The record is a 103-nucleotide sequence from Peribacillus asahii, which matches "TPP riboswitch aptamer (THI element)" in Rfam. It scores 67 bits against the family's covariance model. The organism belongs to Peribacillus, within Bacteria. Rfam describes the family as follows. Vitamin B(1) in its active form thiamin pyrophosphate (TPP) is an essential coenzyme that is synthesised by coupling of pyrimidine and thiazole moieties in bacteria. Rfam links the family to the GO term thiamine pyrophosphate binding.
RNA sequence: UACGUCCACAAGGGGAGCCGAAGAGGCUGAGAGUGAGCGAAUGAGUUCUGACCCUAUGAACCUGUUAGUUAAUGCUAGCGUAGGGAUGUGGUUUUGGAUAUAA
Number, nucleotide and partner (000 for none) at each position: 001u000002a000003c000004g000005u000006c091007c090008a089009c088010a087011a055012g054013g053014g052015g000016a049017g027018c026019c025020g000021a000022a000023g000024a000025g019026g018027c017028u000029g000030a000031g000032a000033g000034u000035g048036a047037g046038c045039g000040a000041a000042u000043g000044a000045g038046u037047u036048c035049u016050g000051a000052c014053c013054c012055u011056a000057u000058g000059a000060a000061c084062c083063u082064g081065u078066u077067a076068g075069u000070u000071a000072a000073u000074g000075c068076u067077a066078g065079c000080g000081u064082a063083g062084g061085g000086a000087u010088g009089u008090g007091g006092u000093u000094u000095u000096g000097g000098a000099u000100a000101u000102a000103a000